Annotation: This 91-nucleotide RNA from Nocardioides acrostichi belongs to the Rfam family "Bacterial small signal recognition particle RNA".
RNA sequence: AACCCCCCGCGCGGCGGCAUCUUGCCCAACUCCCCCAGGGUCGAGAGACAGCAAGGGUAAGCGAGCUCUGACGGGUGCGCGGGGGGCCUCU
Numbered sequence: 001a002a003c004c005c006c007c008c009g010c011g012c013g014g015c016g017g018c019a020u021c022u023u024g025c026c027c028a029a030c031u032c033c034c035c036c037a038g039g040g041u042c043g044a045g046a047g048a049c050a051g052c053a054a055g056g057g058u059a060a061g062c063g064a065g066c067u068c069u070g071a072c073g074g075g076u077g078c079g080c081g082g083g084g085g086g087c088c089u090c091u
Base pairs, nucleotide, nucleotide: 003086004085005084006083007082008081009080010079011078012075015073016072018070019069021065022064023063024062025061032057033056034055040049041048042047
Annotation
The signal recognition particle (SRP) is a universally conserved ribonucleoprotein involved in the co-translational targeting of proteins to membranes. The organism belongs to Nocardioides, within Bacteria. It is annotated as a non-coding RNA gene.